[Rfam]
RNA sequence: UGAGAAAAGCAGAAGUGAGAGCUUCUCGCCUUGCGACUAACGUUGUCUGGCUCUACAUGUCAAGUUUCAUUUUAUGAAAUAUUACUGUAGUGCGGGCUUGCGUUGGCAAGUCCGCUUUCGUUUUUCUCU
Numbered sequence: 001u002g003a004g005a006a007a008a009g010c011a012g013a014a015g016u017g018a019g020a021g022c023u024u025c026u027c028g029c030c031u032u033g034c035g036a037c038u039a040a041c042g043u044u045g046u047c048u049g050g051c052u053c054u055a056c057a058u059g060u061c062a063a064g065u066u067u068c069a070u071u072u073u074a075u076g077a078a079a080u081a082u083u084a085c086u087g088u089a090g091u092g093c094g095g096g097c098u099u100g101c102g103u104u105g106g107c108a109a110g111u112c113c114g115c116u117u118u119c120g121u122u123u124u125u126c127u128c129u
Base pairs, nucleotide, nucleotide: 011026012025013024014023015022016021028051029050030049033046034045035044036043037042092115093114094113095112096111097110098109099108100107
Description
This 129-nucleotide sequence from Streptococcus downei belongs to the Rfam family "Ribosomal protein L20 leader". Gene Ontology term of the family: regulation of gene expression. The family's consensus secondary structure was predicted with CMfinder. Taxonomically the source falls in Streptococcus downei (Bacteria, Bacillota, Streptococcaceae, Streptococcus). Rfam's curators write: This family is a putative r-protein leader autoregulatory structure found in B. subtilis and other low-GC Gram-positive bacteria. It is located in the 5' untranslated regions of mRNAs encoding initiation factor 3 followed by ribosomal proteins L35 and L20 (infC-rpmI-rplT).